[Rfam]
RNA: MIR408 microRNA precursor family
Organism: Hibiscus syriacus
RNA sequence: UGGGAGAGACGGACAAAGAUAGGGAACAGGCUGAGCAUGGAUGGAUCUACCAACAGAUUCUGUUGUUUCUCUGCCCAUGCACUGCCUCUUCCCUGGCUCCGCCUCCUCCAUUUUCU
Numbered sequence: 001u002g003g004g005a006g007a008g009a010c011g012g013a014c015a016a017a018g019a020u021a022g023g024g025a026a027c028a029g030g031c032u033g034a035g036c037a038u039g040g041a042u043g044g045a046u047c048u049a050c051c052a053a054c055a056g057a058u059u060c061u062g063u064u065g066u067u068u069c070u071c072u073g074c075c076c077a078u079g080c081a082c083u084g085c086c087u088c089u090u091c092c093c094u095g096g097c098u099c100c101g102c103c104u105c106c107u108c109c110a111u112u113u114u115c116u
Base pairs, nucleotide, nucleotide: 017098018097020095021094022093023092024091025090026089028087029086030085031084033082035080036079037078038077039076040075044071045070